[Rfam]
RNA sequence: UAAUAGUUCCGGUAAGUAAGGCUACUAUAGGGAUAUGGGUUACUGCCGCAAAAUAGUGGAGACACUAUGCGCUGGUUUGAACAGGCAACAUCGAAACCAAGGUGUUAUCUAAUGUAACUUCACCGCCCUACAGAGUUAAAGCUCAAACGGUGGUAAAAAAUA
Numbered sequence: 001u002a003a004u005a006g007u008u009c010c011g012g013u014a015a016g017u018a019a020g021g022c023u024a025c026u027a028u029a030g031g032g033a034u035a036u037g038g039g040u041u042a043c044u045g046c047c048g049c050a051a052a053a054u055a056g057u058g059g060a061g062a063c064a065c066u067a068u069g070c071g072c073u074g075g076u077u078u079g080a081a082c083a084g085g086c087a088a089c090a091u092c093g094a095a096a097c098c099a100a101g102g103u104g105u106u107a108u109c110u111a112a113u114g115u116a117a118c119u120u121c122a123c124c125g126c127c128c129u130a131c132a133g134a135g136u137u138a139a140a141g142c143u144c145a146a147a148c149g150g151u152g153g154u155a156a157a158a159a160a161u162a
Stems, first nucleotide, its partner, number of pairs: 007156002010153001011148001013100001015143003020137003025133002028130005039118005045077001046075003055066004084109002087106001090103003
Rfam assigns this 162-nucleotide RNA from Fusobacterium mortiferum to the family "M-box riboswitch aptamer (ykoK leader)".
A reference for the family is Barrick et al. (2004), "New RNA motifs suggest an expanded scope for riboswitches in bacterial genetic control", Proc Natl Acad Sci U S A.
Its family is annotated with regulation of gene expression and response to magnesium ion in the Gene Ontology.
Rfam's curators write: M-box riboswitch, also know as ykoK leader is described as a metaloregulatory RNA that sense divalent metals and function as a genetic control element of genes related to divalent metal transport in bacteria. It was first reported upstream of the B.subtilis ykoK gene and genes with related functions in other bacteria.